[Rfam]
RNA sequence: GUCGUCUUGAGGCGGUGUGGGAAGGAAGCCCGAGGCUGAAACUCUGCACCGAGGAACACGAACCGCGUAUGAGGCAUGUCGGUUGGGGUGAGCCAGCCACGGAUGGCGAAGCCCGUCAUCGCCAAGACGGCCGGUGUGUAAUCGCAGCAGGGGUAGAGGGAAAGUGAUCGUU
Numbered sequence: 001g002u003c004g005u006c007u008u009g010a011g012g013c014g015g016u017g018u019g020g021g022a023a024g025g026a027a028g029c030c031c032g033a034g035g036c037u038g039a040a041a042c043u044c045u046g047c048a049c050c051g052a053g054g055a056a057c058a059c060g061a062a063c064c065g066c067g068u069a070u071g072a073g074g075c076a077u078g079u080c081g082g083u084u085g086g087g088g089u090g091a092g093c094c095a096g097c098c099a100c101g102g103a104u105g106g107c108g109a110a111g112c113c114c115g116u117c118a119u120c121g122c123c124a125a126g127a128c129g130g131c132c133g134g135u136g137u138g139u140a141a142u143c144g145c146a147g148c149a150g151g152g153g154u155a156g157a158g159g160g161a162a163a164g165u166g167a168u169c170g171u172u
Stems, first nucleotide, its partner, number of pairs: 001016006028172001030170001032168001035165002042158005047152001049150001051148001063147001065145003074139003078135007086114004092107004
RNA: Group II catalytic intron D1-D4-3
Organism: Streptomyces sp. ISL-10